Shown here is a 99-nucleotide RNA sequence from Sutcliffiella cohnii, a member of the family "Guanidine-I riboswitch aptamer".

RNA sequence: AGAUAGGUUUUCUAGGGUUCCGUAGUCUUUACUAGUCUGGUCCGAGAGAAAGCCCACAAGUGUAAGCUUGUGACACGGAGGGAUAAAAGCCUGGGAGAU
Numbered sequence: 001a002g003a004u005a006g007g008u009u010u011u012c013u014a015g016g017g018u019u020c021c022g023u024a025g026u027c028u029u030u031a032c033u034a035g036u037c038u039g040g041u042c043c044g045a046g047a048g049a050a051a052g053c054c055c056a057c058a059a060g061u062g063u064a065a066g067c068u069u070g071u072g073a074c075a076c077g078g079a080g081g082g083a084u085a086a087a088a089g090c091c092u093g094g095g096a097g098a099u
Stems, first nucleotide, its partner, number of pairs: 007053006015043002020040002022037001023034004055072007074094001076097001080092003

The pairing is the family consensus, mapped onto this sequence. For this family Rfam cites "Structural basis for guanidine sensing by the ykkC family of riboswitches" (Battaglia et al., RNA, 2017).